[Rfam]
RNA: DUF805b RNA
Organism: Tenacibaculum sp. Bg11-29
RNA sequence: UAGGAGUUAACCGAAAAUCCAUAACAGAGUAGGUA
Numbered sequence: 001u002a003g004g005a006g007u008u009a010a011c012c013g014a015a016a017a018u019c020c021a022u023a024a025c026a027g028a029g030u031a032g033g034u035a
Stems, first nucleotide, its partner, number of pairs: 003020003010034003